[Rfam]
RNA sequence: GGUCAAACACAAGGAGGCAGACAUGGGACUGACUAAUUCUAUCAAUGUCCUUAUCGUCAGUGCGGCGUUUGUGUUCAUUACCACCAUGCUGUUCAUCUGACCGGGAGUGAGAUGAGCCAAGAGCGAUGAAGCGGCCAACCAAGGCCGCUCAGGCAGGAAUGGUUUCAGAAAUCAAAAAGGCGCAUGACGGCCCCCGUCAUGCGCCUU
Dot-bracket structure: ...............((((......(((.........))).....))))...............................................................................................................................(((((((((((((.....)))))))))))))